Annotation: Small nucleolar RNA psi18S-1377: a 147-nucleotide sequence from Drosophila albomicans. Gene Ontology terms of the family: RNA processing and nucleolus.

[Rfam]
RNA sequence: UCGUUCUUGUGUUAUUUGCUGAACUAGUCUCAUCGUUCAGUGAUUGUCAAAAAGAACGCAUAGUGACUUCCAAACCUGUUUAUCACUCCACAUUGUUGAGCCUAUUAUUGCCAAGGCUGCUACAAUACUUACCCGCUGGUUACAUAU
Numbered sequence: 001u002c003g004u005u006c007u008u009g010u011g012u013u014a015u016u017u018g019c020u021g022a023a024c025u026a027g028u029c030u031c032a033u034c035g036u037u038c039a040g041u042g043a044u045u046g047u048c049a050a051a052a053a054g055a056a057c058g059c060a061u062a063g064u065g066a067c068u069u070c071c072a073a074a075c076c077u078g079u080u081u082a083u084c085a086c087u088c089c090a091c092a093u094u095g096u097u098g099a100g101c102c103u104a105u106u107a108u109u110g111c112c113a114a115g116g117c118u119g120c121u122a123c124a125a126u127a128c129u130u131a132c133c134c135g136c137u138g139g140u141u142a143c144a145u146a147u
Base pairs, nucleotide, nucleotide: 002058003057004056005055006054007053010049011048016043017042018041019040020039021038022037092126093125094124095123096122099118100117101116102115

About this RNA
About the family: psi18S-1377 is a member of the H/ACA class of snoRNA. This family is responsible for guiding the modification of uridines 1377 and 1279 to pseudouridine in Drosophila 18S rRNA. A search with the family's covariance model found it, with a score of 114 bits. The organism belongs to Drosophila, within Eukaryota.